[Rfam]
RNA sequence: UGGACAUCUAAAGAAUUGACAUAGAAGCUUACAAAUGGUUAUUAUAUUUUUAAAUAUUAGAAGGAUCGACAAGAUCUAGCUUUUGGAAAAGUCCCCGGAUCCUAGGAUAGAAAGUAUCACCCGUAAUGGUAGUGUCUUAGUUGGUAUUAUAUGACAAAGAAGAUAUCAAUCUCUACAUGUUUGUAUUGAUUGCAUAUCCGAGUCUUUUAUGAUUCAAAUUAAGUCAAUGAUCGCAGUACAAGAUUAAUGCAAUUAAGAAUGUGCGAGUUUAUAUUUAAACUUAUUGUUUAUUAUAUAUCUUAUCUCGUACUUCUUUACUUAAUGGGGCUUACUCUAAAGAUGUCC
Numbered sequence: 001u002g003g004a005c006a007u008c009u010a011a012a013g014a015a016u017u018g019a020c021a022u023a024g025a026a027g028c029u030u031a032c033a034a035a036u037g038g039u040u041a042u043u044a045u046a047u048u049u050u051u052a053a054a055u056a057u058u059a060g061a062a063g064g065a066u067c068g069a070c071a072a073g074a075u076c077u078a079g080c081u082u083u084u085g086g087a088a089a090a091g092u093c094c095c096c097g098g099a100u101c102c103u104a105g106g107a108u109a110g111a112a113a114g115u116a117u118c119a120c121c122c123g124u125a126a127u128g129g130u131a132g133u134g135u136c137u138u139a140g141u142u143g144g145u146a147u148u149a150u151a152u153g154a155c156a157a158a159g160a161a162g163a164u165a166u167c168a169a170u171c172u173c174u175a176c177a178u179g180u181u182u183g184u185a186u187u188g189a190u191u192g193c194a195u196a197u198c199c200g201a202g203u204c205u206u207u208u209a210u211g212a213u214u215c216a217a218a219u220u221a222a223g224u225c226a227a228u229g230a231u232c233g234c235a236g237u238a239c240a241a242g243a244u245u246a247a248u249g250c251a252a253u254u255a256a257g258a259a260u261g262u263g264c265g266a267g268u269u270u271a272u273a274u275u276u277a278a279a280c281u282u283a284u285u286g287u288u289u290a291u292u293a294u295a296u297a298u299c300u301u302a303u304c305u306c307g308u309a310c311u312u313c314u315u316u317a318c319u320u321a322a323u324g325g326g327g328c329u330u331a332c333u334c335u336a337a338a339g340a341u342g343u344c345c
Stems, first nucleotide, its partner, number of pairs: 002345007009337001011335001014254005022085007038070003043065001089330003093327004106118004119130003132225001139219001141217004148211004153204003188198003256314004
Record summary: A member of the RNA family "RNase MRP" from Polysphondylium violaceum, 345 nucleotides long. Rfam's curators write: RNase MRP is an enzymatically active ribonucleoprotein with two distinct roles in eukaryotes. The family's RNA type in Rfam is ribozyme. A search with the family's covariance model found it, with a score of 67 bits.